Shown here is an 80-nucleotide sequence from Moschus moschiferus, a member of the family "Small nucleolar RNA U2-19". For this family Rfam cites "Guide RNAs with 5' Caps and Novel Box C/D snoRNA-like Domains for Modification of snRNAs in Metazoa" (Tycowski et al., Curr Biol, 2004). By type it is a C/D-box small nucleolar RNA.

RNA sequence: GAUUAAUGAUGAAAAUAGCCAAAUCUGAGCAUCAGAAGACCUCUUAGUCCACCUGACGUAUGAUCUCAGUAGUUCUGAAA
Numbered sequence: 001g002a003u004u005a006a007u008g009a010u011g012a013a014a015a016u017a018g019c020c021a022a023a024u025c026u027g028a029g030c031a032u033c034a035g036a037a038g039a040c041c042u043c044u045u046a047g048u049c050c051a052c053c054u055g056a057c058g059u060a061u062g063a064u065c066u067c068a069g070u071a072g073u074u075c076u077g078a079a080a
Base pairs, nucleotide, nucleotide: 029059030058032056033055038049039048040047